Rfam assigns this 64-nucleotide sequence from Clarias magur to the family "mir-155 microRNA precursor family". NCBI's taxonomy places the organism under Eukaryota, Chordata, Actinopteri, Teleostei, Clarias. The family has 25 seed sequences and 647 matches in Rfam 15.1.
RNA sequence: GGGUUAAUGCUAAUCGUGAUAGGGGUUGUUUUGAAGCGAACACCUAUGCUGUUAGCAUUAUUCC
Numbered sequence: 001g002g003g004u005u006a007a008u009g010c011u012a013a014u015c016g017u018g019a020u021a022g023g024g025g026u027u028g029u030u031u032u033g034a035a036g037c038g039a040a041c042a043c044c045u046a047u048g049c050u051g052u053u054a055g056c057a058u059u060a061u062u063c064c
Stems, first nucleotide, its partner, number of pairs: 005060010020046004025041003